Rfam assigns this 139-nucleotide sequence from Scyliorhinus torazame to the family "Small nucleolar RNA SNORA14". It scores 41 bits against the family's covariance model. Gene Ontology terms of the family: nucleolus and RNA processing. The organism belongs to Scyliorhinus, within Eukaryota. Rfam describes the family as follows. ACA14 is a member of the H/ACA class of snoRNA that guide the sites of modification of uridines to pseudouridines.
[Rfam]
RNA sequence: UUGCAUUCUUUUAAUCUCACCCUGGUUGUUUUAUAUCACGACAACAAGAACAAGAAAAGAAUGCUAAAUAAAAUCUCCAGAGAAUUCCAAAGUGCUGAGCUUCACUUGUGCUUCUCACUAUUUCACCUCUCUGACAGCU
Numbered sequence: 001u002u003g004c005a006u007u008c009u010u011u012u013a014a015u016c017u018c019a020c021c022c023u024g025g026u027u028g029u030u031u032u033a034u035a036u037c038a039c040g041a042c043a044a045c046a047a048g049a050a051c052a053a054g055a056a057a058a059g060a061a062u063g064c065u066a067a068a069u070a071a072a073a074u075c076u077c078c079a080g081a082g083a084a085u086u087c088c089a090a091a092g093u094g095c096u097g098a099g100c101u102u103c104a105c106u107u108g109u110g111c112u113u114c115u116c117a118c119u120a121u122u123u124c125a126c127c128u129c130u131c132u133g134a135c136a137g138c139u
Base pairs, nucleotide, nucleotide: 003064004063005062006061009055010054011053022048023047025045027043028042029041068139074134075133079130080129081128091119092118093117094116097113099111100110103108